[Rfam]
U8 small nucleolar RNA: a 135-nucleotide sequence from Lepisosteus oculatus. Gene Ontology terms of the family: RNA processing and nucleolus. The family has 55 seed sequences and 1,597 matches in Rfam 15.1. The base pairs follow the family's consensus structure, which is taken from published work. It is annotated as a C/D-box small nucleolar RNA. A search with the family's covariance model found it, with a score of 96 bits.
RNA sequence: UCGUCAGUGAGGUAGUUCCUUACCUGUUACUCCAGCAAUGGAGUUUCAGAACAUGAUGAAUGGAGAAAGAUGAGAUGAUGAUUAAUAUCUCACAAUUGAUGAGGAAUGCAACACCCUCGUUAAUUCCAUUCUGAU
Numbered sequence: 001u002c003g004u005c006a007g008u009g010a011g012g013u014a015g016u017u018c019c020u021u022a023c024c025u026g027u028u029a030c031u032c033c034a035g036c037a038a039u040g041g042a043g044u045u046u047c048a049g050a051a052c053a054u055g056a057u058g059a060a061u062g063g064a065g066a067a068a069g070a071u072g073a074g075a076u077g078a079u080g081a082u083u084a085a086u087a088u089c090u091c092a093c094a095a096u097u098g099a100u101g102a103g104g105a106a107u108g109c110a111a112c113a114c115c116c117u118c119g120u121u122a123a124u125u126c127c128a129u130u131c132u133g134a135u
Stems, first nucleotide, its partner, number of pairs: 024049003029044005072091002075088003079084001095124009